Shown here is a 124-nucleotide RNA sequence from Nocardioides perillae, a member of the family "c-di-AMP riboswitch aptamer (ydaO/yuaA leader)". The match comes from Rfam's covariance-model search (48 bits).
RNA sequence: CGCCGACGGUCGGGAGCCGGGGAACCACCACCCUGGGGUCAAUCCUCUGCGAGGCGGGCGCACGCCCGAGGAGCAGAGGACGGGCAGGUCGUGCCCGCACCCGUCAGCUCACCCGGUAGGCGUA
Numbered sequence: 001c002g003c004c005g006a007c008g009g010u011c012g013g014g015a016g017c018c019g020g021g022g023a024a025c026c027a028c029c030a031c032c033c034u035g036g037g038g039u040c041a042a043u044c045c046u047c048u049g050c051g052a053g054g055c056g057g058g059c060g061c062a063c064g065c066c067c068g069a070g071g072a073g074c075a076g077a078g079g080a081c082g083g084g085c086a087g088g089u090c091g092u093g094c095c096c097g098c099a100c101c102c103g104u105c106a107g108c109u110c111a112c113c114c115g116g117u118a119g120g121c122g123u124a
Stems, first nucleotide, its partner, number of pairs: 001122004016117006026035002036102003044079007082096004